[Rfam]
RNA sequence: GAGGGGAGGCCCCUCAAAGUCGGCUUACAGGGGCAGGCUUUAAACCACCUUAAUCUGCUCAGGUAAAGAGCCUGGGUGGUGAGCGUUGCGGAAAAGGCAGGAUAGAACCUGUCAGGU
Numbered sequence: 001g002a003g004g005g006g007a008g009g010c011c012c013c014u015c016a017a018a019g020u021c022g023g024c025u026u027a028c029a030g031g032g033g034c035a036g037g038c039u040u041u042a043a044a045c046c047a048c049c050u051u052a053a054u055c056u057g058c059u060c061a062g063g064u065a066a067a068g069a070g071c072c073u074g075g076g077u078g079g080u081g082a083g084c085g086u087u088g089c090g091g092a093a094a095a096g097g098c099a100g101g102a103u104a105g106a107a108c109c110u111g112u113c114a115g116g117u
Stems, first nucleotide, its partner, number of pairs: 001015005016041006023034004046116001048091002051088003055079001057077003061073004096113006

The family of this 117-nucleotide RNA sequence from a Syntrophomonadaceae bacterium is "Group II catalytic intron D1-D4-2". Its family is annotated with Group II intron splicing in the Gene Ontology. A reference for the family is Bonen and Vogel (2001), "The ins and outs of group II introns", Trends Genet.